[Rfam]
RNA sequence: UUUGGAUCGAUGAUGAUGAAAAUAUUAUUACUGCGUUAUCUUUCUAGAAUUCCCAUCUAUGGGAUUGAAGACGAUUUUUGUAACUGAGAUCCAAC
Numbered sequence: 001u002u003u004g005g006a007u008c009g010a011u012g013a014u015g016a017u018g019a020a021a022a023u024a025u026u027a028u029u030a031c032u033g034c035g036u037u038a039u040c041u042u043u044c045u046a047g048a049a050u051u052c053c054c055a056u057c058u059a060u061g062g063g064a065u066u067g068a069a070g071a072c073g074a075u076u077u078u079u080g081u082a083a084c085u086g087a088g089a090u091c092c093a094a095c
Stems, first nucleotide, its partner, number of pairs: 002094006
Description: Shown here is a 95-nucleotide sequence from Nicotiana sylvestris, a member of the family "Small nucleolar RNA snoR27". Clan: snR68 clan. For this family Rfam cites "Multiple snoRNA gene clusters from Arabidopsis" (Brown et al., RNA, 2001). The family's consensus secondary structure was predicted with WAR. Rfam classes the family as a C/D-box small nucleolar RNA. Its family is annotated with RNA processing and nucleolus in the Gene Ontology. The family has 6 seed sequences and 649 matches in Rfam 15.1.